[Rfam]
RNA sequence: UCUUACUUCUCAGGGCGGGGUGCAAUUCCCCACCGGCGGUAUCCCGGCUCGGCCGGGGAGCCCGCGAGCGCUCCUGCAUGGGCAGGAGGUCAGCAGAUCCGGUGAAACGCCGGAGCCGACGGUAACAGUCCGGAUGGAAGAGGGUAAGA
Numbered sequence: 001u002c003u004u005a006c007u008u009c010u011c012a013g014g015g016c017g018g019g020g021u022g023c024a025a026u027u028c029c030c031c032a033c034c035g036g037c038g039g040u041a042u043c044c045c046g047g048c049u050c051g052g053c054c055g056g057g058g059a060g061c062c063c064g065c066g067a068g069c070g071c072u073c074c075u076g077c078a079u080g081g082g083c084a085g086g087a088g089g090u091c092a093g094c095a096g097a098u099c100c101g102g103u104g105a106a107a108c109g110c111c112g113g114a115g116c117c118g119a120c121g122g123u124a125a126c127a128g129u130c131c132g133g134a135u136g137g138a139a140g141a142g143g144g145u146a147a148g149a
Base pairs, nucleotide, nucleotide: 003147004146005145006144008143009142010141011140018030019029020028032129033128034118035117036065037064038063039062060116061115068094069093098114099113100112101111102110120132121131122130